[Rfam]
RNA sequence: UGAUCCAUAGGAGAUGGCAUUCCUCCGCUCUUGGCGCCAUACCAAGGGAAAUCGCCGGCCGGCUGAUGAUGCCUACAGACCU
Numbered sequence: 001u002g003a004u005c006c007a008u009a010g011g012a013g014a015u016g017g018c019a020u021u022c023c024u025c026c027g028c029u030c031u032u033g034g035c036g037c038c039a040u041a042c043c044a045a046g047g048g049a050a051a052u053c054g055c056c057g058g059c060c061g062g063c064u065g066a067u068g069a070u071g072c073c074u075a076c077a078g079a080c081c082u
Stems, first nucleotide, its partner, number of pairs: 010026004016073006054063003
Shown here is an 82-nucleotide sequence from Eoetvoesiella caeni, a member of the family "Fluoride riboswitch aptamer (crcB RNA motif)".
A search with the family's covariance model found it, with a score of 42 bits.
The base pairs follow the family's consensus structure, which is taken from published work.